[Rfam]
RNA sequence: CUGGAAGUGAUGAUUAUUUCCCCAGAUGAUCGAAUAUGAAAUAACUGAGCGCAUUUUACGAUUCUCUUUCAACAGAGGGAAUCCAAGCCAGAAAUCUGGUCCAA
Numbered sequence: 001c002u003g004g005a006a007g008u009g010a011u012g013a014u015u016a017u018u019u020c021c022c023c024a025g026a027u028g029a030u031c032g033a034a035u036a037u038g039a040a041a042u043a044a045c046u047g048a049g050c051g052c053a054u055u056u057u058a059c060g061a062u063u064c065u066c067u068u069u070c071a072a073c074a075g076a077g078g079g080a081a082u083c084c085a086a087g088c089c090a091g092a093a094a095u096c097u098g099g100u101c102c103a104a
Base pairs, nucleotide, nucleotide: 002103003102004101005100
The family of this 104-nucleotide RNA from Artemisia annua is "Small nucleolar RNA Z103". By type it is a C/D-box small nucleolar RNA.